About this RNA:
A member of the RNA family "FMN riboswitch aptamer (RFN element)" from Candidatus Hakubella thermalkaliphila, 116 nucleotides long. Pairs were carried over by alignment from the consensus structure, which is taken from published work.
RNA sequence: UGUGCUCUUCGGGGCAGGGUGAAAUUCCCGAUCGGCGGUUACAGUCCGCGAGCCUUCAGGCAGACCUGGUUAGAUACCAGGACCGACAGUAAGAGUCUGGAUGGGAGAAGAGUUUC
Numbered sequence: 001u002g003u004g005c006u007c008u009u010c011g012g013g014g015c016a017g018g019g020u021g022a023a024a025u026u027c028c029c030g031a032u033c034g035g036c037g038g039u040u041a042c043a044g045u046c047c048g049c050g051a052g053c054c055u056u057c058a059g060g061c062a063g064a065c066c067u068g069g070u071u072a073g074a075u076a077c078c079a080g081g082a083c084c085g086a087c088a089g090u091a092a093g094a095g096u097c098u099g100g101a102u103g104g105g106a107g108a109a110g111a112g113u114u115u116c
Stems, first nucleotide, its partner, number of pairs: 004113007017029003031096002033085002035049004044083002052061003065081005087099003

The match comes from Rfam's covariance-model search (110 bits). The RFN element is a highly conserved domain that is found frequently in the 5'-untranslated regions of prokaryotic mRNAs that encode for flavin mononucleotide (FMN) biosynthesis and transport proteins. This element is a metabolite-dependent riboswitch that directly binds FMN in the absence of proteins. In Bacillus subtilis, the riboswitch most likely controls gene expression by causing premature transcription termination within the 5' untranslated region of the ribDEAHT operon and precluding access to the ribosome-binding site of ypaA mRNA.The FMN riboswitch structure, reported in present an FMN-bound six-stem junction, adopts a butterfly-like scaffold, stapled together by opposingly directed but nearly identically folded peripheral domains.